[Rfam]
RNA sequence: AGCCCUCCGGCAAUGGGGUCGGAGGAAGAACCAAUAGGGGCUGGUGUA
Numbered sequence: 001a002g003c004c005c006u007c008c009g010g011c012a013a014u015g016g017g018g019u020c021g022g023a024g025g026a027a028g029a030a031c032c033a034a035u036a037g038g039g040g041c042u043g044g045u046g047u048a
Stems, first nucleotide, its partner, number of pairs: 004025008029042001031040002
RNA: gut-2 RNA